RNA sequence: AUGAUUACCCUAACAAAAACACUGACUUUGUUUUUCAAUGCAGUAAGAACUUCUUGUUGGUGUAAUUUUG
Dot-bracket structure: ...(((((.((.((((.(...((.(((..............))).))...)..)))).)).)))))....
RNA: miR-430 microRNA precursor family
Organism: Liparis tanakae